[Rfam]
RNA sequence: GCGGAUGAAGAUAGAAUUCAUUGGUCUGUCAAUCCACUGACGAAUUUCGUUUGAUGUUAAACAAUGAAUCCCGACAGGUUCUGAUCGC
Numbered sequence: 001g002c003g004g005a006u007g008a009a010g011a012u013a014g015a016a017u018u019c020a021u022u023g024g025u026c027u028g029u030c031a032a033u034c035c036a037c038u039g040a041c042g043a044a045u046u047u048c049g050u051u052u053g054a055u056g057u058u059a060a061a062c063a064a065u066g067a068a069u070c071c072c073g074a075c076a077g078g079u080u081c082u083g084a085u086c087g088c
Base pairs, nucleotide, nucleotide: 001088002087003086004085

The family of this 88-nucleotide RNA from Centaurea solstitialis is "Small nucleolar RNA snoR14". The base pairs follow the family's consensus structure. The match comes from Rfam's covariance-model search (73 bits). Gene Ontology terms of the family: RNA processing and nucleolus.